[Rfam]
RNA: PhotoRC-II RNA
RNA sequence: UCACCAUACAUCUUCCUGCUAACCAAGACUGAGGAAGUAAAACACGUCUUCUUGUCCACCAGUGAAGGGAUUGGUGGAAAUAACAGUAUCG
Numbered sequence: 001u002c003a004c005c006a007u008a009c010a011u012c013u014u015c016c017u018g019c020u021a022a023c024c025a026a027g028a029c030u031g032a033g034g035a036a037g038u039a040a041a042a043c044a045c046g047u048c049u050u051c052u053u054g055u056c057c058a059c060c061a062g063u064g065a066a067g068g069g070a071u072u073g074g075u076g077g078a079a080a081u082a083a084c085a086g087u088a089u090c091g
Stems, first nucleotide, its partner, number of pairs: 013036005020031002026049004056077007